A member of the RNA family "RAGATH-18 RNA", 73 nucleotides long.
RNA sequence: ACUGUGGAGCGUACAAGAACUUGUGAGUAGUGUGUCACUUGCGACCACAAAAGCAUACACGAUGAAGCAGUAA
Numbered sequence: 001a002c003u004g005u006g007g008a009g010c011g012u013a014c015a016a017g018a019a020c021u022u023g024u025g026a027g028u029a030g031u032g033u034g035u036c037a038c039u040u041g042c043g044a045c046c047a048c049a050a051a052a053g054c055a056u057a058c059a060c061g062a063u064g065a066a067g068c069a070g071u072a073a
Stems, first nucleotide, its partner, number of pairs: 001071005009060001011058003022055003030048003035043001
It is annotated as a small RNA.
It is one of the family's seed sequences.